[Rfam]
RNA sequence: GGGUCAGUGGCGUAGCUGGUUAUCGCAUCUGUCUAACAUAGAGUUCGCGGGUGUUUGACGCACAGAAGGUCCUCAGUUCGAAUCUGGGCUGACUCA
Numbered sequence: 001g002g003g004u005c006a007g008u009g010g011c012g013u014a015g016c017u018g019g020u021u022a023u024c025g026c027a028u029c030u031g032u033c034u035a036a037c038a039u040a041g042a043g044u045u046c047g048c049g050g051g052u053g054u055u056u057g058a059c060g061c062a063c064a065g066a067a068g069g070u071c072c073u074c075a076g077u078u079c080g081a082a083u084c085u086g087g088g089c090u091g092a093c094u095c096a
Stems, first nucleotide, its partner, number of pairs: 001095007010026003028066005072088005
Shown here is a 96-nucleotide RNA from Armillaria solidipes, a member of the family "tRNA".
Lineage of the source: Eukaryota > Opisthokonta > Fungi > Marasmiineae > Armillaria.
Pairs were carried over by alignment from the consensus structure, which is taken from published work.
Rfam describes the family as follows. Transfer RNA (tRNA) molecules are approximately 80 nucleotides in length.